[Rfam]
RNA sequence: CGGGGCAUUUCGCAGACGCCCCGCCGCAUCGACGAGCUUCCCGUCCAAGCUCUGC
Numbered sequence: 001c002g003g004g005g006c007a008u009u010u011c012g013c014a015g016a017c018g019c020c021c022c023g024c025c026g027c028a029u030c031g032a033c034g035a036g037c038u039u040c041c042c043g044u045c046c047a048a049g050c051u052c053u054g055c
Base pairs, nucleotide, nucleotide: 001023002022003021004020005019006018012055013054014053015052016051031045032044033043034042
RNA: chrB-b RNA